[Rfam]
RNA sequence: UAAUUCCUUCGGGGCAGGGUGAAAUUCCCGACCGACGGUGAAGAAGCUUGAUGCUUCUAAGUCCGUGACCCGAGUGAUUUUAAGUCAUUCGGUGGAUCUGGUGAAACUCCAGAGCCGACAGUAAAGUCUGGAUGGGAGAAGGAAUUU
Numbered sequence: 001u002a003a004u005u006c007c008u009u010c011g012g013g014g015c016a017g018g019g020u021g022a023a024a025u026u027c028c029c030g031a032c033c034g035a036c037g038g039u040g041a042a043g044a045a046g047c048u049u050g051a052u053g054c055u056u057c058u059a060a061g062u063c064c065g066u067g068a069c070c071c072g073a074g075u076g077a078u079u080u081u082a083a084g085u086c087a088u089u090c091g092g093u094g095g096a097u098c099u100g101g102u103g104a105a106a107c108u109c110c111a112g113a114g115c116c117g118a119c120a121g122u123a124a125a126g127u128c129u130g131g132a133u134g135g136g137a138g139a140a141g142g143a144a145u146u147u
Stems, first nucleotide, its partner, number of pairs: 003145008017029003031127002033117002035066004061115002070092002097113005119130003

The family of this 147-nucleotide RNA sequence from Cerasibacillus terrae is "FMN riboswitch aptamer (RFN element)".